A member of the RNA family "Lysine riboswitch aptamer" from Sporofaciens musculi, 186 nucleotides long.
From the family's description: Riboswitches are metabolite binding domains within certain messenger RNAs that serve as precision sensors for their corresponding targets.
Taxonomically the source falls in Sporofaciens (Bacteria, Bacillati, Bacillota, Lachnospiraceae).

[Rfam]
RNA sequence: UAACUUGGUAGAGGCGCGGUCUUCAUUAGUACUUUGUGACGAUAGAAUGGGAAGCUGUCACGAAGGAAAGGGGAUGCCGCCGAAGGAGUGUAAGGAAGCAUAUUCCAUGGGUCUCCCAAUCCGCAUUCCUGGGACGCAGUCAGAAGAUGCUGCGGACUGUCACAUCAGUGGAGCGCUAUCAUAGGU
Numbered sequence: 001u002a003a004c005u006u007g008g009u010a011g012a013g014g015c016g017c018g019g020u021c022u023u024c025a026u027u028a029g030u031a032c033u034u035u036g037u038g039a040c041g042a043u044a045g046a047a048u049g050g051g052a053a054g055c056u057g058u059c060a061c062g063a064a065g066g067a068a069a070g071g072g073g074a075u076g077c078c079g080c081c082g083a084a085g086g087a088g089u090g091u092a093a094g095g096a097a098g099c100a101u102a103u104u105c106c107a108u109g110g111g112u113c114u115c116c117c118a119a120u121c122c123g124c125a126u127u128c129c130u131g132g133g134a135c136g137c138a139g140u141c142a143g144a145a146g147a148u149g150c151u152g153c154g155g156a157c158u159g160u161c162a163c164a165u166c167a168g169u170g171g172a173g174c175g176c177u178a179u180c181a182u183a184g185g186u
Stems, first nucleotide, its partner, number of pairs: 006181006016080005022074003032065010084130008131158002135154006160171004